[Rfam]
RNA sequence: UACAUAAUUUAAUUAUGUCGUCGUAUAACAUUGGGAAUAAGGCCCGAAAGUCUCUACCAGAUUACCGUAAAUGAUCUGACUACGAAGAAUGGAAGUAUUGUU
Numbered sequence: 001u002a003c004a005u006a007a008u009u010u011a012a013u014u015a016u017g018u019c020g021u022c023g024u025a026u027a028a029c030a031u032u033g034g035g036a037a038u039a040a041g042g043c044c045c046g047a048a049a050g051u052c053u054c055u056a057c058c059a060g061a062u063u064a065c066c067g068u069a070a071a072u073g074a075u076c077u078g079a080c081u082a083c084g085a086a087g088a089a090u091g092g093a094a095g096u097a098u099u100g101u102u
Stems, first nucleotide, its partner, number of pairs: 018088002021085005031047005058078007
Dot-bracket structure: .................((.(((((.....(((((.......)))))..........(((((((.......)))))))..))))).))..............
RNA: Purine riboswitch aptamer